[Rfam]
The record is a 600-nucleotide part of an RNA from Thermoplasmatales archaeon E-plasma, which matches "Archaeal small subunit ribosomal RNA" in Rfam. Rfam links the family to the GO terms structural constituent of ribosome and ribosome. The literature on the family includes a 2001 paper in Science by Yusupov et al., "Crystal structure of the ribosome at 5.5 A resolution". The family is grouped with related families in Rfam's "SSU clan". Lineage of the source: Archaea > Methanobacteriati > Thermoplasmatota > Thermoplasmata > Thermoplasmatales.
RNA sequence: UGGCGGGGGAGCACCACAACGGGAGGAGCGUGCGGUUUAAUUGGAUUCAACGCCGGAAAGCUCACCAGGAGCGACCUUUGAAUGAGAGUCAACUUGACGAGCUUACUCGAUAGAAGGAGAGGUGGUGCAUGGCCGUCGUCAGCUCGUACCGUAGGGCGUUCACUUAAGUGUGAUAACGAGCGAGACCCCCAUCUUUAAUUGCCAUCAUGUUCGAGAGAAUGUGGGCACUUUAAGGGGACCGCCAGCGCAGAGCUGGAGGAAGGAGGGGUCGACGGCAGGUCAGUACGCCCCGAAUCUCCUGGGCAACACGCGCGCUACAAAGGACAGGACAAUGGGCUGCGACCUCGAAAGGGGAAGCUAAUCUCGAAACCUGUUCGUAGUUAGGAUUGAGGGCUGUAACUCGCCCUCAUGAAUCUGGAUUCCGUAGUAAUCGCGGGUCAACAUCCCGCGGUGAAUAUGUCCCUGCUCCUUGCACACACCGCCCGUCAAACCAUCCGAGCUGGUGUUGGAUGAGGCUUUGCUCAUAUGGGCAGAUUCGAAUCUGGUGUCAGUGAGGAGGGUUAAGUCGUAACAAGGUAUCCGUAGGGGAACCUGCGGAUG
Numbered sequence: 001u002g003g004c005g006g007g008g009g010a011g012c013a014c015c016a017c018a019a020c021g022g023g024a025g026g027a028g029c030g031u032g033c034g035g036u037u038u039a040a041u042u043g044g045a046u047u048c049a050a051c052g053c054c055g056g057a058a059a060g061c062u063c064a065c066c067a068g069g070a071g072c073g074a075c076c077u078u079u080g081a082a083u084g085a086g087a088g089u090c091a092a093c094u095u096g097a098c099g100a101g102c103u104u105a106c107u108c109g110a111u112a113g114a115a116g117g118a119g120a121g122g123u124g125g126u127g128c129a130u131g132g133c134c135g136u137c138g139u140c141a142g143c144u145c146g147u148a149c150c151g152u153a154g155g156g157c158g159u160u161c162a163c164u165u166a167a168g169u170g171u172g173a174u175a176a177c178g179a180g181c182g183a184g185a186c187c188c189c190c191a192u193c194u195u196u197a198a199u200u201g202c203c204a205u206c207a208u209g210u211u212c213g214a215g216a217g218a219a220u221g222u223g224g225g226c227a228c229u230u231u232a233a234g235g236g237g238a239c240c241g242c243c244a245g246c247g248c249a250g251a252g253c254u255g256g257a258g259g260a261a262g263g264a265g266g267g268g269u270c271g272a273c274g275g276c277a278g279g280u281c282a283g284u285a286c287g288c289c290c291c292g293a294a295u296c297u298c299c300u301g302g303g304c305a306a307c308a309c310g311c312g313c314g315c316u317a318c319a320a321a322g323g324a325c326a327g328g329a330c331a332a333u334g335g336g337c338u339g340c341g342a343c344c345u346c347g348a349a350a351g352g353g354g355a356a357g358c359u360a361a362u363c364u365c366g367a368a369a370c371c372u373g374u375u376c377g378u379a380g381u382u383a384g385g386a387u388u389g390a391g392g393g394c395u396g397u398a399a400c401u402c403g404c405c406c407u408c409a410u411g412a413a414u415c416u417g418g419a420u421u422c423c424g425u426a427g428u429a430a431u432c433g434c435g436g437g438u439c440a441a442c443a444u445c446c447c448g449c450g451g452u453g454a455a456u457a458u459g460u461c462c463c464u465g466c467u468c469c470u471u472g473c474a475c476a477c478a479c480c481g482c483c484c485g486u487c488a489a490a491c492c493a494u495c496c497g498a499g500c501u502g503g504u505g506u507u508g509g510a511u512g513a514g515g516c517u518u519u520g521c522u523c524a525u526a527u528g529g530g531c532a533g534a535u536u537c538g539a540a541u542c543u544g545g546u547g548u549c550a551g552u553g554a555g556g557a558g559g560g561u562u563a564a565g566u567c568g569u570a571a572c573a574a575g576g577u578a579u580c581c582g583u584a585g586g587g588g589a590a591c592c593u594g595c596g597g598a599u600g
Stems, first nucleotide, its partner, number of pairs: 001476002003473003007470007016460002020424005025318001027316008035307002041056004065302007075117004079112002087107003091103001093101001121291002124289004130285002132280003135276004142181006149156002160173004187268004192236007202225002206223007239259002242256005322376007334365003339358002343354004383414001388409007430452008479575001481572001484568002487565001489562004494557003499552013514537002517534007577600010